[Rfam]
Shown here is a 133-nucleotide RNA from Penicillium griseofulvum, a member of the family "U4 spliceosomal RNA". The match comes from Rfam's covariance-model search (93 bits). U4 small nuclear RNA (U4 snRNA) is a component of the major U2-dependent spliceosome. The family's RNA type in Rfam is spliceosomal small nuclear RNA. Taxonomically the source falls in Penicillium (Eukaryota, saccharomyceta, leotiomyceta, Eurotiomycetes). Its Rfam clan is "U4 clan".
Nucleotides: 133
Stems, first nucleotide, its partner, number of pairs: 020053005026048003034043003086113003090109003094105004
Number, partner (000 for none) and nucleotide at each position: 001000a002000u003000c004000c005000u006000a007000g008000u009000g010000c011000a012000c013000g014000g015000g016000u017000u018000u019000u020053a021052c022051a023050c024049g025000u026048a027047u028046c029000a030000g031000u032000g033000a034043g035042g036041a037000g038000a039000c040000a041036u042035c043034c044000g045000a046028g047027a048026u049024c050023g051022u052021g053020u054000u055000u056000u057000u058000g059000c060000u061000a062000g063000u064000u065000g066000a067000a068000a069000a070000c071000u072000a073000c074000c075000a076000a077000a078000u079000u080000g081000a082000c083000u084000a085000c086113u087112u088111c089000a090109a091108g092107u093000a094105g095104g096103c097102c098000u099000a100000c101000g102097g103096g104095c105094u106000c107092g108091c109090u110000u111088g112087g113086g114000a115000a116000u117000u118000u119000u120000u121000g122000a123000a124000a125000c126000a127000c128000u129000c130000u131000g132000u133000a